The record is a 68-nucleotide RNA from Lactobacillus amylolyticus, which matches "emrB-Lactobacillus RNA" in Rfam. The source organism's lineage runs through Bacteria, Bacilli, Lactobacillaceae, Lactobacillus and Lactobacillus amylolyticus. By type it is a small RNA. The base pairs follow the family's consensus structure, which is taken from published work.

RNA sequence: UACUCAGUACAACCAUUAACUGUUGUACGAUUAAUGUGAUUACACUUGUGUGAUCAAAGAAAGGGUAG
Numbered sequence: 001u002a003c004u005c006a007g008u009a010c011a012a013c014c015a016u017u018a019a020c021u022g023u024u025g026u027a028c029g030a031u032u033a034a035u036g037u038g039a040u041u042a043c044a045c046u047u048g049u050g051u052g053a054u055c056a057a058a059g060a061a062a063g064g065g066u067a068g
Base pairs, nucleotide, nucleotide: 002066003065004064005063007028008027009026010025011024012023013022037056038055039054040053041052042051043050